Notes: The family of this 69-nucleotide RNA from Salmo trutta is "Small nucleolar RNA SNORD58". It is annotated as a C/D-box small nucleolar RNA. Its Rfam clan is "SNORD58 clan". Its family is annotated with nucleolus and RNA processing in the Gene Ontology. NCBI's taxonomy places the organism under Eukaryota, Eumetazoa, Deuterostomia, Protacanthopterygii, Salmo. A reference for the family is Galardi et al. (2002), "Purified box C/D snoRNPs are able to reproduce site-specific 2'-O-methylation of target RNA in vitro", Mol Cell Biol.
[Rfam]
RNA sequence: UUGCAACGCUGACUUCUUAGGACACCUUUGGAUUGCCCAUGAAAAUAAAUGUAAGAAAAUAUGAGCAAC
Numbered sequence: 001u002u003g004c005a006a007c008g009c010u011g012a013c014u015u016c017u018u019a020g021g022a023c024a025c026c027u028u029u030g031g032a033u034u035g036c037c038c039a040u041g042a043a044a045a046u047a048a049a050u051g052u053a054a055g056a057a058a059a060u061a062u063g064a065g066c067a068a069c
Stems, first nucleotide, its partner, number of pairs: 001068004